[Rfam]
RNA sequence: GCGGGGGGACGACCCCCCGCUACCCCCCGCGUUGCCGCGGGGGGACGACCCCC
Numbered sequence: 001g002c003g004g005g006g007g008g009a010c011g012a013c014c015c016c017c018c019g020c021u022a023c024c025c026c027c028c029g030c031g032u033u034g035c036c037g038c039g040g041g042g043g044g045a046c047g048a049c050c051c052c053c
Stems, first nucleotide, its partner, number of pairs: 001020008040053005
RNA: Guanidine-II riboswitch aptamer (mini-ykkC)
Organism: Actinomadura viridilutea